[Rfam]
RNA sequence: GGCCGAGUAGUUCAGCUGGUUAGAACGCUAGCCUGUCACGCUAGAGGUCGUGGGUUCGAGCCCCAUCUCGGUCG
Numbered sequence: 001g002g003c004c005g006a007g008u009a010g011u012u013c014a015g016c017u018g019g020u021u022a023g024a025a026c027g028c029u030a031g032c033c034u035g036u037c038a039c040g041c042u043a044g045a046g047g048u049c050g051u052g053g054g055u056u057c058g059a060g061c062c063c064c065a066u067c068u069c070g071g072u073c074g
Stems, first nucleotide, its partner, number of pairs: 001073007010026004028044005050066005
tRNA: a 74-nucleotide sequence from Feifania hominis.
The match comes from Rfam's covariance-model search (68 bits).
NCBI's taxonomy places the organism under Bacteria, Bacillati, Clostridia, Eubacteriales, Feifania.
By type it is a transfer RNA.
Gene Ontology term of the family: triplet codon-amino acid adaptor activity.